The family of this 78-nucleotide RNA from Taxus chinensis is "Small nucleolar RNA Z155". The base pairs follow the family's consensus structure. A search with the family's covariance model found it, with a score of 46 bits. Rfam classes the family as a C/D-box small nucleolar RNA. Its family is annotated with nucleolus and RNA processing in the Gene Ontology. The literature on the family includes a 2003 paper in Nucleic Acids Res by Chen et al., "The high diversity of snoRNAs in plants: identification and comparative study of 120 snoRNA genes from Oryza sativa".

[Rfam]
RNA sequence: CAUUGAGGUGAUGAUUUUUUUUCUUUUGAAUUUUAUCAUGUAAUACAGAAAAAUCAGACUACAAUUUUCUUAUCAAUG
Numbered sequence: 001c002a003u004u005g006a007g008g009u010g011a012u013g014a015u016u017u018u019u020u021u022u023c024u025u026u027u028g029a030a031u032u033u034u035a036u037c038a039u040g041u042a043a044u045a046c047a048g049a050a051a052a053a054u055c056a057g058a059c060u061a062c063a064a065u066u067u068u069c070u071u072a073u074c075a076a077u078g
Stems, first nucleotide, its partner, number of pairs: 001078006